[Rfam]
Nucleotides: 533
Stems, first nucleotide, its partner, number of pairs: 024055001025053005035042002065072002076103004086094002106287004112137001114135002118131002121128002141227001143224003152215001155209001158206001163179001165178004182186001189199002237258007264281005321328002344355004390515009400505002518533004
Number, partner (000 for none) and nucleotide at each position: 001000u002000g003000u004000u005000u006000c007000u008000c009000c010000c011000c012000c013000c014000c015000g016000u017000a018000a019000g020000a021000c022000u023000a024055c025053c026052c027051g028050c029049u030000g031000a032000a033000c034000u035042u036041a037000a038000g039000c040000a041036u042035a043000u044000c045000a046000a047000u048000a049029a050028g051027c052026g053025g054000a055024g056000g057000a058000a059000a060000a061000g062000a063000a064000a065072c066071c067000a068000a069000c070000a071066g072065g073000g074000a075000u076103u077102g078101c079100c080000u081000c082000a083000g084000u085000a086094a087093c088000g089000g090000c091000g092000a093087g094086u095000g096000a097000a098000g099000c100079g101078g102077c103076a104000a105000a106287a107286g108285c109284u110000c111000a112137u113000c114135u115134u116000u117000a118131a119130a120000a121128g122127c123000u124000u125000c126000g127122g128121c129000a130119u131118u132000g133000u134115a135114a136000c137112g138000g139000u140000g141227g142000c143224g144223g145222a146000g147000g148000g149000g150000g151000u152215g153000g154000a155209u156000c157000g158206c159000a160000a161000a162000a163179g164000u165178c166177c167176a168175u169000u170000g171000g172000a173000a174000c175168a176167u177166g178165g179163c180000g181000c182186c183000a184000u185000c186182g187000a188000g189199g190198g191000u192000g193000a194000c195000a196000g197000c198190c199189c200000c201000g202000u203000c204000a205000a206158g207000a208000u209155a210000c211000g212000c213000c214000c215152c216000c217000a218000c219000c220000c221000c222145u223144c224143c225000a226000c227141c228000a229000a230000u231000a232000g233000a234000g235000u236000c237258g238257a239256g240255u241254u242253g243252u244000u245000u246000g247000g248000g249000a250000a251000u252243g253242c254241a255240a256239c257238u258237c259000u260000a261000a262000c263000a264281a265280g266279g267278u268277g269000g270000u271000a272000a273000a274000c275000u276000c277268c278267a279266u280265c281264u282000a283000a284109g285108g286107c287106u288000a289000a290000a291000u292000a293000u294000c295000g296000a297000c298000g299000a300000g301000a302000g303000a304000c305000c306000g307000a308000u309000a310000g311000c312000g313000a314000a315000c316000a317000a318000g319000u320000a321328c322327a323000g324000u325000g326000a327322u328321g329000g330000a331000a332000a333000g334000a335000u336000g337000a338000a339000a340000a341000g342000c343000a344355c345354u346353u347352u348000g349000a350000a351000a352347a353346g354345a355344g356000a357000g358000u359000g360000a361000a362000a363000c364000a365000g366000u367000a368000c369000g370000u371000g372000a373000a374000a375000u376000u377000g378000u379000u380000g381000g382000a383000a384000g385000g386000g387000a388000a389000g390515g391514g392513a393512u394511u395510g396509g397508g398507g399000a400505g401504g402000a403000a404000a405000c406000c407000u408000c409000u410000u411000g412000c413000c414000c415000c416000g417000u418000g419000u420000u421000u422000g423000c424000g425000c426000g427000c428000a429000g430000u431000c432000a433000a434000a435000a436000g437000c438000u439000g440000c441000g442000u443000g444000g445000g446000c447000c448000c449000c450000g451000c452000c453000u454000c455000g456000g457000c458000u459000a460000c461000g462000c463000c464000c465000g466000c467000g468000c469000c470000c471000c472000g473000c474000c475000c476000g477000c478000a479000c480000g481000c482000a483000c484000g485000c486000a487000g488000a489000c490000a491000c492000g493000c494000c495000g496000c497000g498000a499000g500000c501000u502000a503000g504401u505400c506000c507398c508397c509396c510395c511394a512393a513392u514391c515390c516000g517000c518533c519532c520531g521530u522000c523000u524000u525000g526000a527000a528000a529000c530521a531520c532519g533518g